The record is a 148-nucleotide sequence from Paraburkholderia xenovorans, which matches "Guanidine-I riboswitch aptamer" in Rfam.
On this family, see Barrick et al., Proc Natl Acad Sci U S A 2004: "New RNA motifs suggest an expanded scope for riboswitches in bacterial genetic control".
[Rfam]
RNA sequence: UCUUAGGGAUGCUAGGGUUCCGGUUCGAGAGAACGUCUGGUCCGAGAGCAGCCCGGUGCGCCGACAGGUUCGAUUGCUUCGCUUGCAGGUUCCACUGCGGACACGAACGGCCGGUGGCACUACACGGCGGGACAAAAGCCCGGGAGAU
Numbered sequence: 001u002c003u004u005a006g007g008g009a010u011g012c013u014a015g016g017g018u019u020c021c022g023g024u025u026c027g028a029g030a031g032a033a034c035g036u037c038u039g040g041u042c043c044g045a046g047a048g049c050a051g052c053c054c055g056g057u058g059c060g061c062c063g064a065c066a067g068g069u070u071c072g073a074u075u076g077c078u079u080c081g082c083u084u085g086c087a088g089g090u091u092c093c094a095c096u097g098c099g100g101a102c103a104c105g106a107a108c109g110g111c112c113g114g115u116g117g118c119a120c121u122a123c124a125c126g127g128c129g130g131g132a133c134a135a136a137a138g139c140c141c142g143g144g145a146g147a148u
Base pairs, nucleotide, nucleotide: 007053008052010050011049012048015043016042020040021039022037023034024033025032026031055121056120057119058118059117123143125146129141130140131139
Rfam describes the family as follows. This family represents a conserved RNA structure found upstream of the ykkC and yxkD genes in Bacillus subtilis and related genes in other bacteria.